[Rfam]
RNA sequence: UUAGGUUUUCUACAUUUGCUUAUGGAAUAUUUCUGGGAUUCUUGUUAUUGAAGAUCGAUACAGAUGAUAUGAAGAUGAAAAAGAGGAGAAG
Numbered sequence: 001u002u003a004g005g006u007u008u009u010c011u012a013c014a015u016u017u018g019c020u021u022a023u024g025g026a027a028u029a030u031u032u033c034u035g036g037g038a039u040u041c042u043u044g045u046u047a048u049u050g051a052a053g054a055u056c057g058a059u060a061c062a063g064a065u066g067a068u069a070u071g072a073a074g075a076u077g078a079a080a081a082a083g084a085g086g087a088g089a090a091g
Stems, first nucleotide, its partner, number of pairs: 006084004011079001013077005019071001037056004042051002